[Rfam]
RNA sequence: UAAAAAUAUUGUAUUUGACUAUAUUCACGGCGUGAAAUAAGGGAUUACACUAUUUUUAAACGGAAAGUGAAUCAAUUAACAUAAUAGACUCCU
Numbered sequence: 001u002a003a004a005a006a007u008a009u010u011g012u013a014u015u016u017g018a019c020u021a022u023a024u025u026c027a028c029g030g031c032g033u034g035a036a037a038u039a040a041g042g043g044a045u046u047a048c049a050c051u052a053u054u055u056u057u058a059a060a061c062g063g064a065a066a067g068u069g070a071a072u073c074a075a076u077u078a079a080c081a082u083a084a085u086a087g088a089c090u091c092c093u
Stems, first nucleotide, its partner, number of pairs: 007086006014079002017077002020074001023072006031062003034056006
Annotation: The family of this 93-nucleotide sequence from Nicotiana attenuata is "MIR6152 microRNA precursor family". The source organism's lineage runs through Eukaryota, Tracheophyta, Pentapetalae, Solanales and Nicotiana. The family has 2 seed sequences and 5,807 matches in Rfam 15.1. The family's consensus secondary structure was predicted with RNAalifold. Gene Ontology terms of the family: RISC complex and miRNA-mediated post-transcriptional gene silencing.